[Rfam]
The family of this 76-nucleotide sequence from Desertihabitans brevis is "Actino-pnp RNA".

RNA sequence: CCCGGUCCUCGGUAGUGGCCCUCGGAGCGCACCGCACGGCGGUGCCCCGUUCCGCGGGCCUCGAUCGAAGACCGGC
Numbered sequence: 001c002c003c004g005g006u007c008c009u010c011g012g013u014a015g016u017g018g019c020c021c022u023c024g025g026a027g028c029g030c031a032c033c034g035c036a037c038g039g040c041g042g043u044g045c046c047c048c049g050u051u052c053c054g055c056g057g058g059c060c061u062c063g064a065u066c067g068a069a070g071a072c073c074g075g076c
Base pairs, nucleotide, nucleotide: 002075003074004073005072006071007070009068010067011066012065013064017060018059019058020057021056023054024053025052026051027050028049029048

A search with the family's covariance model found it, with a score of 63 bits. The family's consensus secondary structure is taken from published work.